[Rfam]
RNA sequence: UGCCUAAACUCGUCAAUCUCUGACGAGCAUGGCUAAAAGACCCAAGGAUGACACUGAACCCCGCGUUCAGCAACUCAUCCUUGGGCUAUAUUCCGAAAGGGAUAUAGGGUCGCAAGACCU
Numbered sequence: 001u002g003c004c005u006a007a008a009c010u011c012g013u014c015a016a017u018c019u020c021u022g023a024c025g026a027g028c029a030u031g032g033c034u035a036a037a038a039g040a041c042c043c044a045a046g047g048a049u050g051a052c053a054c055u056g057a058a059c060c061c062c063g064c065g066u067u068c069a070g071c072a073a074c075u076c077a078u079c080c081u082u083g084g085g086c087u088a089u090a091u092u093c094c095g096a097a098a099g100g101g102a103u104a105u106a107g108g109g110u111c112g113c114a115a116g117a118c119c120u
Stems, first nucleotide, its partner, number of pairs: 002033003009027007041085011054070006087106008107120005